[Rfam]
RNA sequence: CCAACGGCUCUUUUAAGAGCCACCCACCUUCUCUUAAAAGGGCUG
Numbered sequence: 001c002c003a004a005c006g007g008c009u010c011u012u013u014u015a016a017g018a019g020c021c022a023c024c025c026a027c028c029u030u031c032u033c034u035u036a037a038a039a040g041g042g043c044u045g
Base pairs, nucleotide, nucleotide: 006021007020008019009018010017011016

Source information:
Shown here is a 45-nucleotide RNA sequence from Ibidorhyncha struthersii, a member of the family "Histone 3' UTR stem-loop". The organism belongs to Ibidorhyncha, within Eukaryota. It scores 41 bits against the family's covariance model. The family's consensus secondary structure is taken from published work. Rfam links the family to the GO term mRNA 3'-end processing by stem-loop binding and cleavage.